[Rfam]
Rfam assigns this 86-nucleotide sequence from Micromonospora pattaloongensis to the family "ZMP/ZTP riboswitch aptamer (pfl RNA motif)". Taxonomically the source falls in Micromonospora (Bacteria, Bacillati, Actinomycetota, Micromonosporaceae). The base pairs follow the family's consensus structure, which is taken from published work.

RNA sequence: GGGGGGUUACGCGACUGGCGCAGCGAGGUGGAAGAGACCACCGGGGAGCGACCGCAGACCGUGCACCGCGCGCCUGGGUGCACCGU
Numbered sequence: 001g002g003g004g005g006g007u008u009a010c011g012c013g014a015c016u017g018g019c020g021c022a023g024c025g026a027g028g029u030g031g032a033a034g035a036g037a038c039c040a041c042c043g044g045g046g047a048g049c050g051a052c053c054g055c056a057g058a059c060c061g062u063g064c065a066c067c068g069c070g071c072g073c074c075u076g077g078g079u080g081c082a083c084c085g086u
Stems, first nucleotide, its partner, number of pairs: 003055001005053003010050003015045002017074005028041004063081005